[Rfam]
RNA sequence: CUAUGGCAUUGAAGCAAGAGGUUGCGACACACCCGGGAGCAUUGCCAAGCCCGAAAUGUUGGUUUUCUUGUGGAGCUAGCCUAUUCAAGACAAUAGACGA
Number, nucleotide and partner (000 for none) at each position: 001c000002u000003a000004u000005g000006g000007c000008a000009u000010u000011g000012a000013a000014g071015c070016a069017a000018g067019a066020g065021g064022u000023u000024g000025c061026g060027a059028c058029a057030c000031a000032c000033c000034c000035g000036g000037g000038a000039g000040c000041a000042u000043u000044g000045c000046c000047a000048a000049g000050c000051c000052c000053g000054a000055a000056a000057u029058g028059u027060u026061g025062g000063u000064u021065u020066u019067c018068u000069u016070g015071u014072g000073g000074a000075g000076c000077u000078a000079g098080c000081c096082u095083a094084u093085u092086c000087a000088a000089g000090a000091c000092a085093a084094u083095a082096g081097a000098c079099g000100a000
RNA: S10-Clostridia ribosomal protein leader
Organism: Floricoccus tropicus